[Rfam]
RNA sequence: AUUCUAUGAUGACAAAUCCAAAGGCUUGUUUCUCUAAACAUUCGCAGUGGCCGCCUGAGAGCUUUCGCCUUCGCCAGGCUUGAGAGUUAUUGCUGUCUUUAUCCUUCCUUGGAUGUCUGAGUUU
Number, nucleotide and partner (000 for none) at each position: 001a124002u000003u000004c121005u000006a000007u000008g000009a000010u000011g000012a000013c000014a000015a000016a000017u000018c000019c000020a000021a000022a000023g000024g000025c000026u000027u000028g000029u000030u000031u000032c000033u000034c000035u000036a000037a000038a000039c000040a000041u000042u000043c000044g000045c000046a000047g000048u000049g000050g000051c000052c000053g000054c000055c000056u000057g000058a000059g000060a000061g087062c086063u085064u084065u083066c082067g000068c000069c000070u000071u000072c000073g000074c000075c000076a000077g000078g000079c000080u000081u000082g066083a065084g064085a063086g062087u061088u000089a000090u000091u000092g000093c000094u000095g000096u000097c000098u000099u000100u000101a000102u000103c000104c000105u000106u000107c000108c000109u000110u000111g000112g000113a000114u000115g000116u000117c000118u000119g000120a000121g004122u000123u000124u001
Source information
Shown here is a 124-nucleotide sequence from Phaseolus vulgaris, a member of the family "Small nucleolar RNA SNORD14". The family's RNA type in Rfam is C/D-box small nucleolar RNA. The base pairs follow the family's consensus structure, which was predicted with PFOLD. Its family is annotated with RNA processing and nucleolus in the Gene Ontology. From the family's description: U14 small nucleolar RNA (U14 snoRNA) is required for early cleavages of eukaryotic precursor rRNAs. In yeasts, this molecule possess a stem-loop region (known as the Y-domain) which is essential for function. A search with the family's covariance model found it, with a score of 72 bits.